[Rfam]
RNA: 7SK RNA
Nucleotides: 343
Base pairs, nucleotide, nucleotide: 001109002108003107006102007101008100009099010098011097013093014092018090019089024087025086026085027084028083029082030081031080032079033078035074036073037070038069039068042067043066044065045064046062047061048060117172118171119169120168121167122166123140124139126137128136129135141163142162143161148159149158150157202306203305204304208303209302213301214300216298223294224293225292226291230288231287232286233285
Number, partner (000 for none) and nucleotide at each position: 001109g002108g003107a004000u005000g006102u007101g008100a009099g010098g011097g012000u013093g014092a015000u016000c017000u018090g019089g020000c021000u022000g023000u024087g025086a026085c027084a028083u029082c030081u031080g032079u033078c034000a035074c036073c037070c038069c039068a040000u041000u042067g043066a044065u045064u046062g047061c048060c049000a050000g051000c052000g053000u054000u055000g056000a057000u058000u059000c060048g061047g062046c063000u064045g065044a066043u067042c068039u069038g070037g071000c072000u073036g074035g075000c076000u077000a078033g079032g080031u081030g082029g083028g084027u085026g086025u087024c088000c089019c090018c091000u092014u093013c094000c095000u096000u097011c098010c099009u100008u101007c102006a103000a104000u105000g106000c107003u108002c109001c110000a111000c112000g113000u114000g115000c116000g117172u118171c119169c120168c121167u122166c123140c124139c125000g126137a127000a128136g129135c130000u131000g132000u133000g134000c135129g136128c137126u138000g139124g140123g141163u142162c143161g144000a145000a146000g147000a148159g149158g150157a151000u152000g153000a154000c155000c156000c157150u158149c159148c160000c161143c162142g163141a164000u165000a166122g167121a168120g169119g170000a171118g172117g173000a174000c175000c176000g177000g178000u179000c180000u181000u182000u183000g184000g185000u186000c187000a188000a189000g190000g191000g192000u193000a194000u195000a196000c197000g198000a199000g200000u201000a202306g203305c204304u205000g206000c207000g208303u209302u210000c211000c212000c213301c214300u215000g216298c217000u218000a219000g220000a221000a222000c223294c224293u225292c226291c227000a228000a229000a230288c231287a232286a233285g234000c235000u236000c237000u238000c239000a240000a241000g242000g243000u244000c245000c246000c247000c248000u249000a250000u251000g252000c253000u254000u255000u256000c257000u258000u259000a260000c261000u262000u263000u264000g265000a266000c267000a268000u269000g270000g271000a272000a273000a274000c275000a276000c277000a278000a279000g280000g281000u282000g283000u284000u285233c286232u287231u288230g289000a290000u291226g292225g293224a294223g295000a296000g297000a298216g299000g300214a301213g302209a303208a304204a305203g306202c307000u308000a309000a310000a311000c312000u313000g314000a315000a316000u317000a318000u319000u320000u321000c322000u323000u324000c325000u326000g327000a328000a329000a330000a331000g332000a333000a334000a335000u336000u337000a338000g339000u340000a341000u342000u343000u